[Rfam]
RNA sequence: CUUACUGAGAGCUCUUUGGCAUUCUGUCCACCUCCUUCCCGAUCUUGCAGAAAACCUCUUGAGUCUGCUGGUUUUGUGGAUGCGAUGGAGGUGGGCAUACUGCCAAUGGAGCUGUGUAGG
Numbered sequence: 001c002u003u004a005c006u007g008a009g010a011g012c013u014c015u016u017u018g019g020c021a022u023u024c025u026g027u028c029c030a031c032c033u034c035c036u037u038c039c040c041g042a043u044c045u046u047g048c049a050g051a052a053a054a055c056c057u058c059u060u061g062a063g064u065c066u067g068c069u070g071g072u073u074u075u076g077u078g079g080a081u082g083c084g085a086u087g088g089a090g091g092u093g094g095g096c097a098u099a100c101u102g103c104c105a106a107u108g109g110a111g112c113u114g115u116g117u118a119g120g
Base pairs, nucleotide, nucleotide: 013110016106017105018104019103020102021101025097026096027095028094029093030092031091032090033089034088035087

This 120-nucleotide sequence from Eragrostis curvula belongs to the Rfam family "MIR394 microRNA precursor family". On this family, see Jones-Rhoades and Bartel, Mol Cell 2004: "Computational identification of plant microRNAs and their targets, including a stress-induced miRNA". The match comes from Rfam's covariance-model search (85 bits). The base pairs follow the family's consensus structure, which was predicted with WAR.